A member of the RNA family "Mammalian CPEB3 ribozyme" from Alligator mississippiensis, 73 nucleotides long. The mammalian CPEB3 ribozyme is a self cleaving RNA located in the second intron of the CPEB3 gene which belongs to a family of genes regulating messenger RNA polyadenylation. This ribozyme is highly conserved and found only in mammals. The source organism's lineage runs through Eukaryota, Eumetazoa, Craniata, Euteleostomi and Alligator. It scores 54 bits against the family's covariance model.
[Rfam]
RNA sequence: ACGUGUUAGCUUCCAUAGCAGAAGUGCUCAUGUCAUGGCCCUGUCAGAUUCUAAUGAAUCUGCAAAUUCUGCU
Numbered sequence: 001a002c003g004u005g006u007u008a009g010c011u012u013c014c015a016u017a018g019c020a021g022a023a024g025u026g027c028u029c030a031u032g033u034c035a036u037g038g039c040c041c042u043g044u045c046a047g048a049u050u051c052u053a054a055u056g057a058a059u060c061u062g063c064a065a066a067u068u069c070u071g072c073u
Base pairs, nucleotide, nucleotide: 009041013038014037017073018072019071020070021069022068023067024036025035026034045062046061047060048059049058050057051056